[Rfam]
RNA sequence: UAGCCCUACGGAAAUGGUGUCUUCCGAUUUAACCGCCCUAAAAAGCUGAUGGCGCCUGCAAACAG
Numbered sequence: 001u002a003g004c005c006c007u008a009c010g011g012a013a014a015u016g017g018u019g020u021c022u023u024c025c026g027a028u029u030u031a032a033c034c035g036c037c038c039u040a041a042a043a044a045g046c047u048g049a050u051g052g053c054g055c056c057u058g059c060a061a062a063c064a065g
Stems, first nucleotide, its partner, number of pairs: 010025004016056006035046002
The record is a 65-nucleotide RNA from Pedobacter sp. BS3, which matches "Fluoride riboswitch aptamer (crcB RNA motif)" in Rfam. Rfam links the family to the GO terms positive regulation of gene expression and response to fluoride. Taxonomically the source falls in Pedobacter (Bacteria, Pseudomonadati, Bacteroidota, Sphingobacteriia). The family's consensus secondary structure is taken from published work. It scores 44 bits against the family's covariance model.